[Rfam]
The record is an 88-nucleotide RNA sequence from Oceanobacillus iheyensis, which matches "BsrC" in Rfam. Rfam's curators put it in the seed alignment. On this family, see Saito et al., Gene 2008: "Novel small RNA-encoding genes in the intergenic regions of Bacillus subtilis". About the family: The 301 nucleotide sequence from Kouji Nakamura has been trimmed to a highly conserved ~85 nucleotide long core to form this family. Pairs were carried over by alignment from the consensus structure, which was predicted with CMfinder. Lineage of the source: Bacteria > Bacillati > Bacillota > Caryophanales > Oceanobacillus iheyensis.
RNA sequence: UCUACUUAAGCAAUGUAAGCCCUACCUGCUCUUACAUCCUUGCGACCCCUUAGUCGCGCCAGUGUGAAUAAGCAUCUUCCCUAAAACA
Numbered sequence: 001u002c003u004a005c006u007u008a009a010g011c012a013a014u015g016u017a018a019g020c021c022c023u024a025c026c027u028g029c030u031c032u033u034a035c036a037u038c039c040u041u042g043c044g045a046c047c048c049c050u051u052a053g054u055c056g057c058g059c060c061a062g063u064g065u066g067a068a069u070a071a072g073c074a075u076c077u078u079c080c081c082u083a084a085a086a087c088a
Stems, first nucleotide, its partner, number of pairs: 035066002039062002041058006